[Rfam]
RNA sequence: GGCGUAUUUUGCACAGGCGGAGCUCGACCGCCCGUUUCGCAAAUGAUGGAUUUCAUUGCGGAAAGCCGAGAGACACUUGGGGUCGAACCAAUCUGCAGGGCGCUGCAGUUUGCCCCU
Dot-bracket structure: ...............(((((.......)))))..............................................((((......((..((((((....))))))..)))))).
RNA: ALIL pseudoknot